RNA: mraW RNA
Organism: Leifsonia sp. 21MFCrub1.1
RNA sequence: CCGCGUCCCUGGCGCCGGACUCCCAGCCAUACGCCCUGACACCACUUCCCCGGUGUCAGGUCGGAAUGGAUGGGGAUCCGGAUCCAGGGGCAGGCGGCC
Numbered sequence: 001c002c003g004c005g006u007c008c009c010u011g012g013c014g015c016c017g018g019a020c021u022c023c024c025a026g027c028c029a030u031a032c033g034c035c036c037u038g039a040c041a042c043c044a045c046u047u048c049c050c051c052g053g054u055g056u057c058a059g060g061u062c063g064g065a066a067u068g069g070a071u072g073g074g075g076a077u078c079c080g081g082a083u084c085c086a087g088g089g090g091c092a093g094g095c096g097g098c099c
Stems, first nucleotide, its partner, number of pairs: 010086003015081002018078002021075005027069004032063002035060008